Shown here is a 470-nucleotide sequence from Chordeiles acutipennis, a member of the family "Vertebrate telomerase RNA". By type it is a non-coding RNA gene. Pairs were carried over by alignment from the consensus structure, which is taken from published work. Gene Ontology terms of the family: telomere maintenance via telomerase, telomerase activity and telomerase catalytic core complex. Telomerase is a ribonucleoprotein reverse transcriptase that synthesises telomeric DNA. Telomerase RNAs differ greatly in sequence and structure between vertebrates, ciliates and yeasts, but they share a 5' pseudoknot structure close to the template sequence. Vertebrate telomerase RNAs have a 3' H/ACA snoRNA-like domain. NCBI's taxonomy places the organism under Eukaryota, Craniata, Sauropsida, Caprimulgidae, Chordeiles.

RNA sequence: CGUGGCGGGUGGGGAGGCCCCGGUGUGCCUAACCCUAAUGGCUGCUGCCGCGCUCCCCGCGCCCGCCCGCUGUUUUACUCGCUGACUUUCAGCGGACGAGGGGAGCAGUCGGGGGGGGCGGGGGGAAGGGAAGGGAAAGGGGGGGGUCCGCCAUCCCAAAAAAACGUCAGCGAGGGGGCUCCUCACCCCGCCCGCCCUGGGGUCCCUGUCCACCCGCAACCCCCCCCGCAGCCGGGGGCCGCCACGGAGGCUCCCACCGCCGCACCGUUCAGAGGCCGCGGUCGGCCGGUUCCCACCAAUGCCGCCGCGAAGAGUUCGUCUCUGUCAGCCUCAGCGGCGACCGGGAGCGGAGAGGCGCGUCCCCCGCACCGGGGGGACCCCAGCAGAGUAAAACGGGAGCGGCGCCGCCGGGAUACCCGCCGCGCUUCCCUCAGCCGUGGGGCUGCGCGGCCGGCGCCGCUCCGACACGC
Numbered sequence: 001c002g003u004g005g006c007g008g009g010u011g012g013g014g015a016g017g018c019c020c021c022g023g024u025g026u027g028c029c030u031a032a033c034c035c036u037a038a039u040g041g042c043u044g045c046u047g048c049c050g051c052g053c054u055c056c057c058c059g060c061g062c063c064c065g066c067c068c069g070c071u072g073u074u075u076u077a078c079u080c081g082c083u084g085a086c087u088u089u090c091a092g093c094g095g096a097c098g099a100g101g102g103g104a105g106c107a108g109u110c111g112g113g114g115g116g117g118g119c120g121g122g123g124g125g126a127a128g129g130g131a132a133g134g135g136a137a138a139g140g141g142g143g144g145g146g147u148c149c150g151c152c153a154u155c156c157c158a159a160a161a162a163a164a165c166g167u168c169a170g171c172g173a174g175g176g177g178g179c180u181c182c183u184c185a186c187c188c189c190g191c192c193c194g195c196c197c198u199g200g201g202g203u204c205c206c207u208g209u210c211c212a213c214c215c216g217c218a219a220c221c222c223c224c225c226c227c228g229c230a231g232c233c234g235g236g237g238g239c240c241g242c243c244a245c246g247g248a249g250g251c252u253c254c255c256a257c258c259g260c261c262g263c264a265c266c267g268u269u270c271a272g273a274g275g276c277c278g279c280g281g282u283c284g285g286c287c288g289g290u291u292c293c294c295a296c297c298a299a300u301g302c303c304g305c306c307g308c309g310a311a312g313a314g315u316u317c318g319u320c321u322c323u324g325u326c327a328g329c330c331u332c333a334g335c336g337g338c339g340a341c342c343g344g345g346a347g348c349g350g351a352g353a354g355g356c357g358c359g360u361c362c363c364c365c366g367c368a369c370c371g372g373g374g375g376g377a378c379c380c381c382a383g384c385a386g387a388g389u390a391a392a393a394c395g396g397g398a399g400c401g402g403c404g405c406c407g408c409c410g411g412g413a414u415a416c417c418c419g420c421c422g423c424g425c426u427u428c429c430c431u432c433a434g435c436c437g438u439g440g441g442g443c444u445g446c447g448c449g450g451c452c453g454g455c456g457c458c459g460c461u462c463c464g465a466c467a468c469g470c
Stems, first nucleotide, its partner, number of pairs: 001194002004191001007188008016180005052106005064098002067095006081171006087164003197383007235363005240357004250348006259338005277309005283304004288297003311323004397462010420450005427442004